[Rfam]
RNA sequence: AAUCAAAAAAUGCACGGAAACAUGCCACAGUUAGCUGUCUGAAUUUAAUAGCAGCUGAUUGCCAGUAUUUCAUUCUUAAAUGAAAUGCUAGUUUCCCAGAACAACCGACAGGAUAGGAAGUCCGUUGCCUGUGUGUCCCAAGGGGAUGAUAGGCUUGGGAUGUCGAAAUAUUGGUCAACAAUU
Numbered sequence: 001a002a003u004c005a006a007a008a009a010a011u012g013c014a015c016g017g018a019a020a021c022a023u024g025c026c027a028c029a030g031u032u033a034g035c036u037g038u039c040u041g042a043a044u045u046u047a048a049u050a051g052c053a054g055c056u057g058a059u060u061g062c063c064a065g066u067a068u069u070u071c072a073u074u075c076u077u078a079a080a081u082g083a084a085a086u087g088c089u090a091g092u093u094u095c096c097c098a099g100a101a102c103a104a105c106c107g108a109c110a111g112g113a114u115a116g117g118a119a120g121u122c123c124g125u126u127g128c129c130u131g132u133g134u135g136u137c138c139c140a141a142g143g144g145g146a147u148g149a150u151a152g153g154c155u156u157g158g159g160a161u162g163u164c165g166a167a168a169u170a171u172u173g174g175u176c177a178a179c180a181a182u183u
Stems, first nucleotide, its partner, number of pairs: 016071004029060009039051003104175004120161004127154004133150002135147005
Shown here is a 183-nucleotide sequence from Zygosaccharomyces rouxii, a member of the family "Small nucleolar RNA snR34".
Clan: SNORA65 clan.
NCBI's taxonomy places the organism under Eukaryota, Fungi, Ascomycota, Saccharomycetaceae, Zygosaccharomyces.
The family's RNA type in Rfam is H/ACA-box small nucleolar RNA.
The base pairs follow the family's consensus structure, which was predicted with WAR.